[Rfam]
RNA sequence: GUGAUGUUCAUGAAGGUCUGUGCUGAAAGCAGUCACUCUGUUAGCACAGACUGGAUACUCCCAUCAU
Number, nucleotide and partner (000 for none) at each position: 001g067002u066003g065004a064005u063006g000007u000008u000009c000010a000011u000012g000013a000014a000015g052016g051017u050018c049019u048020g047021u046022g045023c044024u043025g000026a000027a000028a000029g000030c040031a039032g038033u000034c000035a000036c000037u000038c032039u031040g030041u000042u000043a024044g023045c022046a021047c020048a019049g018050a017051c016052u015053g000054g000055a000056u000057a000058c000059u000060c000061c000062c000063a005064u004065c003066a002067u001
The record is a 67-nucleotide sequence from Cynoglossus semilaevis, which matches "Selenocysteine insertion sequence 1" in Rfam. A search with the family's covariance model found it, with a score of 44 bits. Its family is annotated with selenocysteine incorporation in the Gene Ontology. NCBI's taxonomy places the organism under Eukaryota, Chordata, Pleuronectiformes, Cynoglossidae, Cynoglossus. About the family: The incorporation of selenocysteine into a protein sequence is directed by an in-frame UGA codon (usually a stop codon) within the coding region of the mRNA. Selenoprotein mRNAs contain a conserved secondary structure in the 3' UTR that is required for the distinction of UGA stop from UGA selenocysteine. The selenocysteine insertion sequence (SECIS) is around 60 nt in length and adopts a hairpin structure which is sufficiently well-defined and conserved to act as a computational screen for selenoprotein genes.